[Rfam]
RNA sequence: CUCCCCGAAAUGCAUUUAGGUGCAGCGUCACGUGUUUCUUACCGGAGGUAGAGCUACUGGAUAGCUAAUGGGCCUCACCAGGUUACUGACGUUAGCCAAACUCCGAAUGCCGGUAAGUGAGAGCGUGGCAGUGAGACUGCGGGGGAUAAGCUCCGUAGUCGAGAGGGAAACAGCCCAGACCACCAUCUAAGGUCCCAAAGCGUGUGCUAAGUGGAAAAGGAUGUGGAGUUGCAGUGACAACCAGGAGGUUGGCUUAGAAGCAGCCACCCUUUAAAGAGUGCGUAAUAGCUCACUGGUCAAGUGAUUCCGCGCCGACAAUGUAGCGGGGCUCAAGCACACCACCGAAGCUGUGGCAUUGACACUUUGCCCGGUUGUGAUACCUGCGGGUUCACGAUCCAAGCGUGUUGAUGGGUAGGGGAGCGUCGUGUGGCCAGGGAAGCGGCGGAGUGAUCCAGCCGUGGAGGCCACACGAGUGAGAAU
Numbered sequence: 001c002u003c004c005c006c007g008a009a010a011u012g013c014a015u016u017u018a019g020g021u022g023c024a025g026c027g028u029c030a031c032g033u034g035u036u037u038c039u040u041a042c043c044g045g046a047g048g049u050a051g052a053g054c055u056a057c058u059g060g061a062u063a064g065c066u067a068a069u070g071g072g073c074c075u076c077a078c079c080a081g082g083u084u085a086c087u088g089a090c091g092u093u094a095g096c097c098a099a100a101c102u103c104c105g106a107a108u109g110c111c112g113g114u115a116a117g118u119g120a121g122a123g124c125g126u127g128g129c130a131g132u133g134a135g136a137c138u139g140c141g142g143g144g145g146a147u148a149a150g151c152u153c154c155g156u157a158g159u160c161g162a163g164a165g166g167g168a169a170a171c172a173g174c175c176c177a178g179a180c181c182a183c184c185a186u187c188u189a190a191g192g193u194c195c196c197a198a199a200g201c202g203u204g205u206g207c208u209a210a211g212u213g214g215a216a217a218a219g220g221a222u223g224u225g226g227a228g229u230u231g232c233a234g235u236g237a238c239a240a241c242c243a244g245g246a247g248g249u250u251g252g253c254u255u256a257g258a259a260g261c262a263g264c265c266a267c268c269c270u271u272u273a274a275a276g277a278g279u280g281c282g283u284a285a286u287a288g289c290u291c292a293c294u295g296g297u298c299a300a301g302u303g304a305u306u307c308c309g310c311g312c313c314g315a316c317a318a319u320g321u322a323g324c325g326g327g328g329c330u331c332a333a334g335c336a337c338a339c340c341a342c343c344g345a346a347g348c349u350g351u352g353g354c355a356u357u358g359a360c361a362c363u364u365u366g367c368c369c370g371g372u373u374g375u376g377a378u379a380c381c382u383g384c385g386g387g388u389u390c391a392c393g394a395u396c397c398a399a400g401c402g403u404g405u406u407g408a409u410g411g412g413u414a415g416g417g418g419a420g421c422g423u424c425g426u427g428u429g430g431c432c433a434g435g436g437a438a439g440c441g442g443c444g445g446a447g448u449g450a451u452c453c454a455g456c457c458g459u460g461g462a463g464g465c466c467a468c469a470c471g472a473g474u475g476a477g478a479a480u
Base pairs, nucleotide, nucleotide: 001420002419003418004417005416006415011024012023013022014021015020026131027129028128029127030126031125032124033123036122038117039116040115041114042113043112044111045110051104052102053101058098059097060096062094063093064092065091070086071084072083073082074081075080135160136159137158138157139156140155141154142153143152144151165176166175167174180353181352182351183350185349187347191343192342193341200340202339203338204337205336206335207334219313220312223310224309225308226307227306228305229304230303231302232301240297241296242295243294244293246270247269248268251265252264253263271275276291280289281288354410355409356408357407358406359405360404361403421475423472424471425470426469427468428467429466430465431464432463439459440458441457442456443455444453445452446451